The family of this 67-nucleotide RNA from Eragrostis curvula is "Small nucleolar RNA Z105". Pairs were carried over by alignment from the consensus structure, which was predicted with CMfinder.

[Rfam]
RNA sequence: UUGGCAUGAUGAGGAAAGAAUAUAAUUUCGUCUGAUGUUGAUGAAAAAUACCUCCUACUCAUUCUGA
Numbered sequence: 001u002u003g004g005c006a007u008g009a010u011g012a013g014g015a016a017a018g019a020a021u022a023u024a025a026u027u028u029c030g031u032c033u034g035a036u037g038u039u040g041a042u043g044a045a046a047a048a049u050a051c052c053u054c055c056u057a058c059u060c061a062u063u064c065u066g067a
Stems, first nucleotide, its partner, number of pairs: 006062004028044002032040001
Annotation
By type it is a C/D-box small nucleolar RNA. The organism belongs to Eragrostis, within Eukaryota.